[Rfam]
RNA sequence: GAACGGACAACGGGAGACACCGGGCGGGCAACCGUCCGGGGCCGAAGGAGCAACCGCCCCGGUAAACUCUCAGGCGAAAAGAACCGCUGUUCGUGA
Numbered sequence: 001g002a003a004c005g006g007a008c009a010a011c012g013g014g015a016g017a018c019a020c021c022g023g024g025c026g027g028g029c030a031a032c033c034g035u036c037c038g039g040g041g042c043c044g045a046a047g048g049a050g051c052a053a054c055c056g057c058c059c060c061g062g063u064a065a066a067c068u069c070u071c072a073g074g075c076g077a078a079a080a081g082a083a084c085c086g087c088u089g090u091u092c093g094u095g096a
Base pairs, nucleotide, nucleotide: 006091007090008089009088011086012085013084020039021038022037023036024035025034041075042074043073044071045070048069049068050067054062055061